[Rfam]
Nucleotides: 054
Base pairs, nucleotide, nucleotide: 006048007047009045010044011043012042023036024035025034026033027032
Number, partner (000 for none) and nucleotide at each position: 001000u002000u003000g004000u005000g006048a007047c008000g009045c010044c011043g012042g013000g014000c015000c016000c017000c018000u019000c020000u021000g022000a023036c024035g025034g026033c027032u028000u029000g030000c031000c032027a033026g034025c035024c036023g037000c038000c039000a040000u041000g042012u043011c044010g045009g046000a047007g048006u049000c050000a051000c052000g053000u054000u